The record is a 140-nucleotide RNA from Carlito syrichta, which matches "Small nucleolar RNA SNORA12" in Rfam. On this family, see Gu et al., Nucleic Acids Res 2005: "A novel experimental approach for systematic identification of box H/ACA snoRNAs from eukaryotes". Rfam links the family to the GO terms nucleolus and RNA processing. U108 belongs to the H/ACA family of snoRNAs. The sequence is predicted to guide the pseudouridylation of the U372 residue in the 28S rRNA subunit. However it has not been reported as a pseudouridylation site. The base pairs follow the family's consensus structure, which was predicted with RNAalifold. NCBI's taxonomy places the organism under Eukaryota, Vertebrata, Euteleostomi, Tetrapoda, Carlito.

[Rfam]
Nucleotides: 140
Stems, first nucleotide, its partner, number of pairs: 005061007021049003025045006074133006080088003104125001106123001
Number, partner (000 for none) and nucleotide at each position: 001000a002000g003000u004000g005061g006060u007059g008058g009057u010056g011055g012000u013000u014000u015000c016000u017000u018000u019000u020000u021049g022048g023047c024000g025045c026044a027043c028042u029041u030040g031000u032000u033000a034000a035000g036000u037000u038000u039000u040030c041029a042028a043027g044026u045025g046000g047023g048022c049021u050000u051000g052000a053000c054000u055011c056010u057009g058008c059007u060006a061005c062000a063000u064000a065000c066000a067000u068000g069000a070000c071000a072000c073000u074133g075132g076131a077130g078129c079128u080088g081087g082086c083000g084000a085000g086082g087081c088080u089000u090000g091000u092000g093000a094000u095000g096000g097000a098000g099000g100000g101000g102000u103000c104125u105000c106123u107000c108000a109000a110000a111000c112000c113000u114000c115000u116000c117000u118000g119000c120000a121000c122000c123106a124000c125104a126000u127000g128079g129078g130077c131076u132075c133074c134000c135000a136000c137000a138000c139000g140000u